A member of the RNA family "Bacterial RNase P class A" from a Myxococcales bacterium, 378 nucleotides long.
Lineage of the source: Bacteria > Pseudomonadati > Myxococcota > Myxococcia > Myxococcales.
A search with the family's covariance model found it, with a score of 291 bits.

[Rfam]
RNA sequence: CGAGAGCAACAGGCGCUCGCUCGAGCUUCGGCUCGAGAGGAAAGUCCGGGCUCCGCAGGGCAGGAUGCCGGGUAACGCCCGGUGAGGGAAACCUCGAGGAAAGUGCCACAGAAAAGCGAACCGCCUGACCGAUUCACGUCGCAUCAGGUAAGGGUGAAACGGUGGGGUAAGAGCCCACCGCAGAGCCGGUAACGGCUCUGGCACGGCAAACCCCAUCCGGAGCAAGGCCACGUAGAGAGGCGUUCGAGGGCUGCCCGCCCGAGCCUCUGGGUAGGCCGCACGAGGCGCGCGGUAACGCGCGUCCUAGAGGAAUGACCGCCACGCCGCGCGAGGCAACGAACGCGGCGAACAGAACCCGGCUUACGGAGCUCUCGUACU
Numbered sequence: 001c002g003a004g005a006g007c008a009a010c011a012g013g014c015g016c017u018c019g020c021u022c023g024a025g026c027u028u029c030g031g032c033u034c035g036a037g038a039g040g041a042a043a044g045u046c047c048g049g050g051c052u053c054c055g056c057a058g059g060g061c062a063g064g065a066u067g068c069c070g071g072g073u074a075a076c077g078c079c080c081g082g083u084g085a086g087g088g089a090a091a092c093c094u095c096g097a098g099g100a101a102a103g104u105g106c107c108a109c110a111g112a113a114a115a116g117c118g119a120a121c122c123g124c125c126u127g128a129c130c131g132a133u134u135c136a137c138g139u140c141g142c143a144u145c146a147g148g149u150a151a152g153g154g155u156g157a158a159a160c161g162g163u164g165g166g167g168u169a170a171g172a173g174c175c176c177a178c179c180g181c182a183g184a185g186c187c188g189g190u191a192a193c194g195g196c197u198c199u200g201g202c203a204c205g206g207c208a209a210a211c212c213c214c215a216u217c218c219g220g221a222g223c224a225a226g227g228c229c230a231c232g233u234a235g236a237g238a239g240g241c242g243u244u245c246g247a248g249g250g251c252u253g254c255c256c257g258c259c260c261g262a263g264c265c266u267c268u269g270g271g272u273a274g275g276c277c278g279c280a281c282g283a284g285g286c287g288c289g290c291g292g293u294a295a296c297g298c299g300c301g302u303c304c305u306a307g308a309g310g311a312a313u314g315a316c317c318g319c320c321a322c323g324c325c326g327c328g329c330g331a332g333g334c335a336a337c338g339a340a341c342g343c344g345g346c347g348a349a350c351a352g353a354a355c356c357c358g359g360c361u362u363a364c365g366g367a368g369c370u371c372u373c374g375u376a377c378u
Stems, first nucleotide, its partner, number of pairs: 001374007010365001012320004017315002020037007042362003046359005051222004058256004063218005068082005083097001084095004098213002103211002105207003121153002123149006161179006180202001181200008226277004236268006248260004284303008
Dot-bracket structure: (((((((..(.[[[[.[[.(((((((....)))))))....(((.(((((((((...[[[[.((((((((((.....)))))(((((....)))).)((...(((((.............((((((((...............))))))..)).......((((((.......))))))(((((((((....)))))))).)..)))..)))))))))))))...((((......((((((......((((.]]]]))))..)))))).....))))......((((((((....))))))))..........]].]]]]..................................))))))))..)..)))))))....